This 88-nucleotide RNA sequence from Anisodus acutangulus belongs to the Rfam family "mir-156 microRNA precursor family". A search with the family's covariance model found it, with a score of 66 bits. The literature on the family includes a 2001 paper in Cell by Ambros, "microRNAs: tiny regulators with great potential". The family has 10 seed sequences and 1,401 matches in Rfam 15.1. Rfam describes the family as follows. This family represents the plant microRNA (miRNA) precursor mir-156.
RNA sequence: CUGACAGAAGAGAGUGAGCACACGCAGGCAAAUUGUAUAAACAUUUAUACAAUUGUCAUUUGCGUGUGCUCACUUCUCUUUCUGUCAC
Numbered sequence: 001c002u003g004a005c006a007g008a009a010g011a012g013a014g015u016g017a018g019c020a021c022a023c024g025c026a027g028g029c030a031a032a033u034u035g036u037a038u039a040a041a042c043a044u045u046u047a048u049a050c051a052a053u054u055g056u057c058a059u060u061u062g063c064g065u066g067u068g069c070u071c072a073c074u075u076c077u078c079u080u081u082c083u084g085u086c087a088c
Base pairs, nucleotide, nucleotide: 002087003086004085005084006083007082008081009080010078011077012076013074014073015072016071017070018069019068020067021066023064024063025062